Nucleotides: 382
Base pairs, nucleotide, nucleotide: 001378002377003376004375005374006373007372008371009370010369011367012329013328014327015326016325017324018323020044021043022042023041024040025039026038027037028036049365050364051363053362054361055360056359057358058218059217060216061215067264068263070214071213072212073211074210075089076088077087078086079085090104091102092101093100094099105209106208110207111206112203113202114201127149129145130144131143132142133141157175158174159173160172161171162170176198177196178195179194182191183190184189222285223284224283225282232276233275234274235273236272261267293312294311295310296309297308298307299306300305
Number, partner (000 for none) and nucleotide at each position: 001378g002377c003376g004375g005374a006373u007372g008371g009370c010369u011367g012329g013328a014327u015326g016325g017324c018323u019000g020044c021043g022042g023041u024040c025039c026038c027037g028036g029000a030000c031000u032000u033000g034000a035000u036028c037027c038026g039025g040024g041023a042022u043021c044020g045000a046000g047000g048000a049365a050364a051363g052000u053362c054361c055360g056359g057358a058218c059217u060216c061215c062000a063000a064000a065000a066000a067264g068263c069000a070214c071213g072212g073211u074210g075089c076088c077087g078086g079085g080000u081000a082000a083000c084000g085079c086078c087077c088076g089075g090104c091102g092101g093100g094099g095000g096000u097000a098000a099094c100093c101092c102091u103000a104090g105209g106208g107000a108000a109000a110207g111206c112203g113202c114201c115000a116000c117000a118000g119000a120000g121000a122000a123000c124000a125000g126000g127149u128000g129145g130144c131143c132142u133141g134000g135000c136000a137000u138000g139000u140000a141133c142132a143131g144130g145129u146000c147000a148000a149127a150000g151000u152000g153000a154000a155000a156000c157175g158174g159173u160172g161171g162170g163000g164000u165000a166000a167000g168000a169000g170162c171161c172160c173159a174158c175157c176198g177196c178195g179194c180000g181000a182191g183190c184189g185000g186000u187000a188000a189184c190183g191182c192000a193000a194179g195178c196177g197000g198176c199000a200000c201114g202113g203112c204000a205000a206111g207110c208106c209105c210074c211073a212072c213071c214070g215061g216060g217059a218058g219000c220000a221000a222285u223284g224283c225282c226000a227000a228000a229000u230000a231000g232276g233275g234274a235273c236272c237000u238000c239000g240000c241000g242000u243000c244000g245000c246000a247000a248000g249000a250000c251000g252000g253000g254000g255000a256000u257000g258000c259000u260000u261267g262000a263068g264067c265000c266000c267261c268000a269000g270000a271000c272236g273235g274234u275233c276232c277000g278000g279000g280000u281000u282225g283224g284223c285222a286000g287000c288000u289000a290000g291000a292000g293312g294311g295310u296309g297308u298307c299306u300305g301000g302000u303000a304000a305300c306299a307298g308297g309296c310295a311294c312293u313000c314000c315000a316000g317000a318000u319000g320000a321000a322000u323018g324017g325016u326015c327014a328013u329012c330000c331000a332000u333000c334000c335000g336000u337000g338000g339000g340000c341000a342000a343000c344000c345000g346000c347000g348000g349000g350000g351000g352000a353000c354000a355000g356000a357000a358057u359056c360055c361054g362053g363051c364050u365049u366000a367011u368000a369010g370009g371008c372007c373006a374005u375004c376003c377002g378001c379000g380000c381000a382000u